[Rfam]
RNA sequence: AGACCCACCAAUCUUGGGUCAAGCUGGGCAACGAGACCCAAUGCGAUUGGGUCAGGCUGGGAAGCCAGACCCAACUUCUCAGCAGGACCCAAUAGCGUUGGGUCUUA
Numbered sequence: 001a002g003a004c005c006c007a008c009c010a011a012u013c014u015u016g017g018g019u020c021a022a023g024c025u026g027g028g029c030a031a032c033g034a035g036a037c038c039c040a041a042u043g044c045g046a047u048u049g050g051g052u053c054a055g056g057c058u059g060g061g062a063a064g065c066c067a068g069a070c071c072c073a074a075c076u077u078c079u080c081a082g083c084a085g086g087a088c089c090c091a092a093u094a095g096c097g098u099u100g101g102g103u104c105u106u107a
Stems, first nucleotide, its partner, number of pairs: 001105002004102004009097001014092007023083006030076001035053008058073004
MIR474 microRNA precursor family: a 107-nucleotide sequence from Populus trichocarpa. Pairs were carried over by alignment from the consensus structure, which was predicted with WAR. Gene Ontology terms of the family: RISC complex and miRNA-mediated post-transcriptional gene silencing. The source organism's lineage runs through Eukaryota, Viridiplantae, Spermatophyta, eudicotyledons and Populus. Rfam 15.1 lists 69 matches to the family in 15 species.